RNA sequence: UUGUGUGUGAGGAGCAAGUGUAAAUCAAAAAACGUCUGGGGUGGAAACACGGCAACACUCCCGGACGUUUUUUGUU
Numbered sequence: 001u002u003g004u005g006u007g008u009g010a011g012g013a014g015c016a017a018g019u020g021u022a023a024a025u026c027a028a029a030a031a032a033c034g035u036c037u038g039g040g041g042u043g044g045a046a047a048c049a050c051g052g053c054a055a056c057a058c059u060c061c062c063g064g065a066c067g068u069u070u071u072u073u074g075u076u
Stems, first nucleotide, its partner, number of pairs: 015074001027073004033067002038062003041058003
RNA: Cyano-1 RNA